[Rfam]
RNA sequence: GGAUAACACUGUUUUGCUAUUCUCGGCCAAUAACACAAUGUCAUGUGGAAAAGUUAUCAUACGUGUCAUUGCGUUAUUAGCCGAGAAUAGCAAAAAGUGAUACCC
Dot-bracket structure: .(.((......(((((((((.((((((.((((((.(((((.((((((..(......)..)))))).))))).)))))).)))))).))))))))).....)).).
RNA: MIR6274 microRNA precursor family